[Rfam]
RNA sequence: AUGAUAACAAGGGGAGAGACCAUGCAAAUGGCGCCGAAGGAGCAACUGAAGAAGUGAAUCUCUCAGGCAAAAAGACUCUUGUUGGACG
Number, nucleotide and partner (000 for none) at each position: 001a000002u000003g000004a000005u000006a083007a082008c081009a080010a079011g078012g077013g076014g000015a000016g000017a000018g000019a000020c031021c030022a029023u028024g000025c000026a000027a000028a023029u022030g021031g020032c000033g068034c067035c066036g064037a063038a000039g000040g062041a061042g060043c000044a000045a000046c000047u054048g000049a000050a000051g000052a000053a000054g047055u000056g000057a000058a000059u000060c042061u041062c040063u037064c036065a000066g035067g034068c033069a000070a000071a000072a000073a000074g000075a000076c013077u012078c011079u010080u009081g008082u007083u006084g000085g000086a000087c000088g000
Rfam assigns this 88-nucleotide RNA sequence from Priestia koreensis to the family "Glycine riboswitch aptamer". The pairing is the family consensus, mapped onto this sequence. It scores 68 bits against the family's covariance model.